[Rfam]
RNA: Bacterial small signal recognition particle RNA
Organism: Coxiella-like endosymbiont
RNA sequence: AAGUCUUCCCUUCGCGACAAAUUACCGUAAACCCCGCUAGGCCCGGAAGGGAGCAACGGUAACGGUGGAUUUGGGUGCCGAAAGGUUCGAGGGCUUUU
Numbered sequence: 001a002a003g004u005c006u007u008c009c010c011u012u013c014g015c016g017a018c019a020a021a022u023u024a025c026c027g028u029a030a031a032c033c034c035c036g037c038u039a040g041g042c043c044c045g046g047a048a049g050g051g052a053g054c055a056a057c058g059g060u061a062a063c064g065g066u067g068g069a070u071u072u073g074g075g076u077g078c079c080g081a082a083a084g085g086u087u088c089g090a091g092g093g094c095u096u097u098u
Stems, first nucleotide, its partner, number of pairs: 004093005009084001011082004015075001018073005023067006034059003042051003